[Rfam]
Nucleotides: 396
Stems, first nucleotide, its partner, number of pairs: 001392010011381001012347007020039008044379003048376005053236004061279002066232005071085005086100001087098004101227002106225002108221003123167002125163009175193006194216001195214004200209003240303004250294005270284004311330008
Number, partner (000 for none) and nucleotide at each position: 001392g002391c003390g004389g005388a006387a007386g008385g009384c010383u011381g012347g013346a014345u015344g016343a017342c018341u019000g020039c021038g022037g023036u024035g025034a026033g027032g028000g029000u030000a031000a032027c033026c034025u035024u036023g037022u038021c039020g040000a041000g042000g043000a044379a045378a046377g047000u048376c049375c050374g051373g052372a053236c054235u055234c056233c057000a058000a059000a060000a061279a062278g063000u064000a065000a066232c067231g068230g069229u070228g071085c072084c073083g074082g075081g076000u077000a078000a079000c080000g081075c082074c083073c084072g085071g086100g087098c088097g089096g090095g091000g092000c093000a094000a095090c096089c097088c098087g099000a100086c101227g102226g103000a104000a105000a106225g107224c108221g109220c110219c111000a112000c113000a114000g115000a116000a117000a118000g119000c120000a121000a122000a123167c124166c125163g126162c127161c128160u129159c130158g131157c132156a133155u134000c135000a136000g137000g138000u139000c140000g141000g142000g143000c144000a145000a146000c147000c148000g149000a150000a151000a152000c153000c154000g155133a156132u157131g158130u159129g160128g161127g162126g163125u164000a165000a166124g167123g168000g169000u170000g171000a172000a173000a174000g175193g176192g177191u178190g179189g180188g181000g182000u183000a184000a185000g186000a187000g188180c189179c190178c191177a192176c193175c194216g195214c196213g197212c198211c199000g200209c201208u202207g203000g204000c205000a206000a207202c208201a209200g210000g211198g212197g213196c214195g215000g216194c217000a218000c219110g220109g221108c222000a223000a224107g225106c226102c227101c228070c229069a230068c231067c232066g233056g234055g235054a236053g237000c238000a239000a240303u241302g242301c243300c244000a245000a246000a247000u248000a249000g250294g251293g252292a253291c254290c255000g256000c257000g258000u259000g260000u261000c262000g263000c264000a265000a266000g267000a268000c269000a270284g271283g272282g273281c274000u275000g276000c277000u278062u279061u280000u281273g282272c283271c284270c285000c286000a287000g288000c289000a290254g291253g292252u293251c294250c295000g296000g297000g298000u299000u300243g301242g302241c303240a304000g305000c306000u307000a308000u309000a310000g311330c312329c313328g314327c315326a316325u317324c318323g319000g320000c321000a322000a323318c324317g325316g326315u327314g328313c329312g330311g331000u332000c333000a334000g335000a336000g337000g338000a339000a340000u341018g342017g343016u344015c345014a346013u347012c348000c349000a350000g351000a352000g353000g354000g355000g356000c357000a358000a359000c360000c361000c362000u363000u364000g365000g366000a367000c368000a369000g370000a371000a372052u373051c374050c375049g376048g377046c378045u379044u380000a381011c382000a383010g384009g385008c386007c387006u388005u389004c390003c391002g392001c393000g394000c395000g396000u
The record is a 396-nucleotide sequence from Sulfitobacter sediminilitoris, which matches "Bacterial RNase P class A" in Rfam. By type it is a ribozyme. Taxonomically the source falls in Sulfitobacter (Bacteria, Alphaproteobacteria, Rhodobacterales, Roseobacteraceae). It scores 297 bits against the family's covariance model.